[Rfam]
Rfam assigns this 116-nucleotide RNA sequence from Candidatus Brocadia fulgida to the family "c-di-GMP-I riboswitch aptamer".

Nucleotides: 116
Base pairs, nucleotide, nucleotide: 012037013036017032018031019030020029021028022027040110041109042108043107046105047104049100050099055095
Number, partner (000 for none) and nucleotide at each position: 001000g002000u003000a004000c005000g006000a007000u008000a009000a010000a011000g012037g013036c014000a015000a016000a017032c018031c019030c020029u021028g022027a023000g024000u025000g026000a027022u028021c029020a030019g031018g032017g033000g034000g035000c036013g037012c038000a039000a040110a041109g042108u043107a044000g045000u046105g047104g048000a049100u050099c051000u052000u053000u054000a055095a056000a057000c058000c059000u060000a061000c062000a063000a064000g065000g066000a067000a068000g069000u070000g071000g072000u073000u074000u075000a076000g077000a078000a079000a080000u081000a082000c083000u084000a085000u086000u087000u088000c089000c090000a091000g092000g093000a094000a095055u096000a097000a098000a099050g100049a101000c102000a103000g104047c105046c106000u107043u108042a109041c110040u111000g112000c113000c114000a115000a116000a
A search with the family's covariance model found it, with a score of 54 bits.